A member of the RNA family "Group II catalytic intron D1-D4-2" from Acidovorax sp. MR-S7, 120 nucleotides long. The base pairs follow the family's consensus structure. NCBI's taxonomy places the organism under Bacteria, Pseudomonadati, Pseudomonadota, Burkholderiales, Acidovorax. Rfam describes the family as follows. Group II introns are found in rRNA, tRNA and mRNA of organelles in fungi, plants and protists, and also in mRNA in bacteria.

[Rfam]
RNA sequence: GGGAGCAGGCCUCCCGAAGCCGGCUUGCAGCAGUUGGCUUCAAACCACCCGGUGCUGCUGCGUUCAAAAGGCGUGGUGGUGAGCGACCGGGCGAAAGUCGCCCCUUGAGGGAUGGCAGGU
Number, nucleotide and partner (000 for none) at each position: 001g015002g014003g013004a012005g011006c000007a000008g000009g000010c000011c005012u004013c003014c002015c001016g041017a040018a039019g038020c037021c036022g000023g034024c033025u032026u000027g000028c000029a000030g000031c000032a025033g024034u023035u000036g021037g020038c019039u018040u017041c016042a000043a000044a000045c000046c119047a000048c091049c090050c089051g088052g087053u086054g080055c079056u000057g077058c076059u075060g000061c073062g072063u071064u070065c000066a000067a000068a000069a000070g064071g063072c062073g061074u000075g059076g058077u057078g000079g055080u054081g000082a000083g000084c000085g000086a053087c052088c051089g050090g049091g048092c000093g000094a000095a000096a000097g116098u115099c114100g113101c111102c110103c000104c000105u000106u000107g000108a000109g000110g102111g101112a000113u100114g099115g098116c097117a000118g000119g046120u000